This 88-nucleotide RNA from Centaurea solstitialis belongs to the Rfam family "mir-395 microRNA precursor family". The match comes from Rfam's covariance-model search (61 bits). Gene Ontology terms of the family: RISC complex and miRNA-mediated post-transcriptional gene silencing. The family's consensus secondary structure was predicted with PFOLD. For this family Rfam cites "Computational Identification of Plant MicroRNAs and Their Targets, Including a Stress-Induced miRNA" (Jones-Rhoades and Bartel, Mol Cell, 2004). The organism belongs to Centaurea, within Eukaryota. Rfam describes the family as follows. mir-395 was identified in both Arabidopsis thaliana and Oryza sativa computationally and was later experimentally verified. mir-395 is thought to target mRNAs coding for ATP sulphurylases. The mature sequence is excised from the 3' arm of the hairpin.
Nucleotides: 088
Base pairs, nucleotide, nucleotide: 005084007082008081009080011078012077013076015074016073017072018071019070020069022068023067024065025064026063027062028061029060030059032057033056034055035054
Number, partner (000 for none) and nucleotide at each position: 001000g002000u003000g004000u005084c006000c007082c008081u009080u010000a011078g012077a013076g014000a015074u016073c017072c018071u019070c020069c021000g022068a023067a024065c025064a026063c027062u028061u029060c030059a031000c032057u033056g034055g035054g036000a037000u038000g039000u040000u041000u042000u043000u044000g045000g046000u047000a048000g049000g050000c051000u052000u053000u054035u055034c056033c057032a058000c059030u060029g061028a062027a063026g064025u065024g066000u067023u068022u069020g070019g071018g072017g073016g074015a075000a076013c077012u078011c079000c080009a081008a082007g083000u084005g085000c086000c087000a088000c